[Rfam]
A member of the RNA family "Nitrogen stress-induced RNA 1" from Lyngbya sp. PCC 8106, 53 nucleotides long. Rfam 15.1 lists 962 matches to the family in 163 species. By type it is a small RNA. A reference for the family is Ionescu et al. (2010), "Heterocyst-specific transcription of NsiR1, a non-coding RNA encoded in a tandem array of direct repeats in cyanobacteria", J Mol Biol.

RNA sequence: UGGUAGAUGCACCCUGGUUGAAGCUCCAGAUUUCAAAUCUGGGGCAUUUUUUU
Numbered sequence: 001u002g003g004u005a006g007a008u009g010c011a012c013c014c015u016g017g018u019u020g021a022a023g024c025u026c027c028a029g030a031u032u033u034c035a036a037a038u039c040u041g042g043g044g045c046a047u048u049u050u051u052u053u
Base pairs, nucleotide, nucleotide: 002013003012004011023045024044025043026042027041028040029039030038031037032036